[Rfam]
RNA sequence: UAGGAAUAACAUUGUAAGUCGCUCUGGAUAAGAGCAUCAGCUAAAUGCCAAAAA
Numbered sequence: 001u002a003g004g005a006a007u008a009a010c011a012u013u014g015u016a017a018g019u020c021g022c023u024c025u026g027g028a029u030a031a032g033a034g035c036a037u038c039a040g041c042u043a044a045a046u047g048c049c050a051a052a053a054a
Stems, first nucleotide, its partner, number of pairs: 013043001014041002021035005
Dot-bracket structure: ............(((.....(((((.....)))))....)).)...........
Notes: The family of this 54-nucleotide RNA from Astyanax mexicanus is "UnaL2 LINE 3' element". Rfam links the family to the GO term transposition, RNA-mediated. The family's consensus secondary structure is taken from published work. It scores 55 bits against the family's covariance model. The organism belongs to Astyanax, within Eukaryota.